[Rfam]
RNA sequence: GCACGGGGACGACCCCGCGCGUGUUCCGGAUUUCCGGCGGGACGACCCGC
Numbered sequence: 001g002c003a004c005g006g007g008g009a010c011g012a013c014c015c016c017g018c019g020c021g022u023g024u025u026c027c028g029g030a031u032u033u034c035c036g037g038c039g040g041g042a043c044g045a046c047c048c049g050c
Stems, first nucleotide, its partner, number of pairs: 001020002004017005037050005
RNA: Guanidine-II riboswitch aptamer (mini-ykkC)